[Rfam]
RNA sequence: GCUAAGCGUUUUUCUUCGCCGGCACAGCUCUGUGACAGUGGAAUCAUAGCUGGCUGCCGAAGAAAAUUCCUUUUA
Number, nucleotide and partner (000 for none) at each position: 001g000002c000003u000004a000005a071006g070007c000008g068009u000010u000011u065012u064013u063014c062015u061016u060017c059018g000019c000020c056021g055022g054023c000024a000025c052026a051027g050028c049029u048030c000031u046032g044033u043034g000035a000036c000037a000038g000039u000040g000041g000042a000043a033044u032045c000046a031047u000048a029049g028050c027051u026052g025053g000054c022055u021056g020057c000058c000059g017060a016061a015062g014063a013064a012065a011066a000067u000068u008069c000070c006071u005072u000073u000074u000075a000

The family of this 75-nucleotide RNA sequence from Branchiostoma lanceolatum is "mir-4900 microRNA precursor family". Rfam 15.1 lists 18 matches to the family in 2 species. Its family is annotated with RISC complex and miRNA-mediated post-transcriptional gene silencing in the Gene Ontology. The base pairs follow the family's consensus structure, which was predicted with RNAalifold.